Annotation
Flavo-1 RNA: an 87-nucleotide RNA sequence.
RNA sequence: CCAUAGCCCAGAUCGAAACGGCAUCCUUUUUUGUUAUCCGGUAAAAGCACAGGCACAAAAAAGAUAUAGUGUAGAGCUGGAUCAAGC
Numbered sequence: 001c002c003a004u005a006g007c008c009c010a011g012a013u014c015g016a017a018a019c020g021g022c023a024u025c026c027u028u029u030u031u032u033g034u035u036a037u038c039c040g041g042u043a044a045a046a047g048c049a050c051a052g053g054c055a056c057a058a059a060a061a062a063g064a065u066a067u068a069g070u071g072u073a074g075a076g077c078u079g080g081a082u083c084a085a086g087c
Stems, first nucleotide, its partner, number of pairs: 009079003013075002018070002023065003029060006

A search with the family's covariance model found it, with a score of 64 bits.